RNA sequence: AUUCCCGUCGUCGGCGCCCCGGUGGGCGGCGUUGCCAGAGCUCUCGCGCAUGGCGUGAGAGUCCUGGAGGACGGGAUAAACUAUGCGACAGGGAAUCUUCCCGGUUGCUCUUU
Numbered sequence: 001a002u003u004c005c006c007g008u009c010g011u012c013g014g015c016g017c018c019c020c021g022g023u024g025g026g027c028g029g030c031g032u033u034g035c036c037a038g039a040g041c042u043c044u045c046g047c048g049c050a051u052g053g054c055g056u057g058a059g060a061g062u063c064c065u066g067g068a069g070g071a072c073g074g075g076a077u078a079a080a081c082u083a084u085g086c087g088a089c090a091g092g093g094a095a096u097c098u099u100c101c102c103g104g105u106u107g108c109u110c111u112u113u
Stems, first nucleotide, its partner, number of pairs: 001077005007072003012034007019026002035067004040062010085108005091102003
RNA: J750 non-coding RNA (containing SLSL761 and SL783)